[Rfam]
RNA sequence: GCCGAGUUGGGUAACUCUAGCUUGUAACCCAAGUGGGGGCAUCAAGGUGAUGGAACAUGGCUAUGAUUUGUCUAGGUUGGGGUGGUUGUUGCACCAUGUUGGCUUGCCCGUUCCAAGUUGAGAGUUGAGUCAUGGUGCUUAGGUGAAGGCUUAGGUGUCAUGACUCCUAGACUAGAGGGCAUAGCGUAAGGCUGGUUUAACAGAGCAGCGAACACCUCUGGCUCUUGACAGUGGAAGGAUUACAUGCUACAGCAUUGCCAUCCCACAAUGCCUGGUGAUCCAAGCCCUUGAACCAUCAUUUUU
Numbered sequence: 001g002c003c004g005a006g007u008u009g010g011g012u013a014a015c016u017c018u019a020g021c022u023u024g025u026a027a028c029c030c031a032a033g034u035g036g037g038g039g040c041a042u043c044a045a046g047g048u049g050a051u052g053g054a055a056c057a058u059g060g061c062u063a064u065g066a067u068u069u070g071u072c073u074a075g076g077u078u079g080g081g082g083u084g085g086u087u088g089u090u091g092c093a094c095c096a097u098g099u100u101g102g103c104u105u106g107c108c109c110g111u112u113c114c115a116a117g118u119u120g121a122g123a124g125u126u127g128a129g130u131c132a133u134g135g136u137g138c139u140u141a142g143g144u145g146a147a148g149g150c151u152u153a154g155g156u157g158u159c160a161u162g163a164c165u166c167c168u169a170g171a172c173u174a175g176a177g178g179g180c181a182u183a184g185c186g187u188a189a190g191g192c193u194g195g196u197u198u199a200a201c202a203g204a205g206c207a208g209c210g211a212a213c214a215c216c217u218c219u220g221g222c223u224c225u226u227g228a229c230a231g232u233g234g235a236a237g238g239a240u241u242a243c244a245u246g247c248u249a250c251a252g253c254a255u256u257g258c259c260a261u262c263c264c265a266c267a268a269u270g271c272c273u274g275g276u277g278a279u280c281c282a283a284g285c286c287c288u289u290g291a292a293c294c295a296u297c298a299u300u301u302u303u
Base pairs, nucleotide, nucleotide: 001040002039003038004023005022006021007020008019009018010017011016028037029036030035044302045301046300047299048298049297050296051295052294053293056290057289059287060286061284062283065280066279068278069277070276071275072274075272076271077270079264080263081262082261083260084259085258086257088256090254091253100249101248102247103246105244106243108238109237111236112235113234114233115232117229118228119227120226121225122224123223124222125221127166128165129164130163131162132161133160134159135158136157137156138155139154140153141152142151143150144149173220174219175218176217177216178215185210186209187208192203193202194201

Record summary: This 303-nucleotide sequence from Lupinus angustifolius belongs to the Rfam family "Plant signal recognition particle RNA". The family has 63 seed sequences and 4,988 matches in Rfam 15.1. The match comes from Rfam's covariance-model search (237 bits).